[Rfam]
RNA sequence: ACUCUUUCUAUCAUGUAUCCUUGACUGAUGUAGCCUCAGAUGCUUCA
Numbered sequence: 001a002c003u004c005u006u007u008c009u010a011u012c013a014u015g016u017a018u019c020c021u022u023g024a025c026u027g028a029u030g031u032a033g034c035c036u037c038a039g040a041u042g043c044u045u046c047a
Stems, first nucleotide, its partner, number of pairs: 011024003032044003
The family of this 47-nucleotide RNA from Phoenix dactylifera is "Plastid-ycf3 group II-D1 intron". Rfam's curators write: Plastid rpl16 is a non-coding RNA (ncRNA) recognised in plastids. It was recognised in and intronic region of a ribosome rpl16 gene. Rfam links the family to the GO term Group II intron splicing. A search with the family's covariance model found it, with a score of 59 bits. A reference for the family is Richter et al. (2023), "Retrograde signaling in plants: A critical review focusing on the GUN pathway and beyond", Plant Commun. Pairs were carried over by alignment from the consensus structure, which was predicted with LocARNA.